[Rfam]
RNA: Fluoride riboswitch aptamer (crcB RNA motif)
RNA sequence: CGUAGUUCUGGCGAUGGAUUUCCGCCUGGCGUCAUGCCGAACCGCUCCUCAGGAAGGAGCUGAUGAUUCCUACUUUCGU
Numbered sequence: 001c002g003u004a005g006u007u008c009u010g011g012c013g014a015u016g017g018a019u020u021u022c023c024g025c026c027u028g029g030c031g032u033c034a035u036g037c038c039g040a041a042c043c044g045c046u047c048c049u050c051a052g053g054a055a056g057g058a059g060c061u062g063a064u065g066a067u068u069c070c071u072a073c074u075u076u077c078g079u
Stems, first nucleotide, its partner, number of pairs: 010026004016070003020066002044060006
Dot-bracket structure: .........((((..[[[.[[.)))).................((((((.....))))))....]].]]].........